[Rfam]
RNA sequence: ACCCGGCACUCUUCACACGGACCGUCCGGCACGUUCCUGCCGGUGAAGGGACCAGCAA
Numbered sequence: 001a002c003c004c005g006g007c008a009c010u011c012u013u014c015a016c017a018c019g020g021a022c023c024g025u026c027c028g029g030c031a032c033g034u035u036c037c038u039g040c041c042g043g044u045g046a047a048g049g050g051a052c053c054a055g056c057a058a
Stems, first nucleotide, its partner, number of pairs: 009050007026043006

Rfam assigns this 58-nucleotide RNA from Actinobaculum sp. oral taxon 183 to the family "msiK RNA". It is annotated as a cis-regulatory element. The base pairs follow the family's consensus structure, which is taken from published work.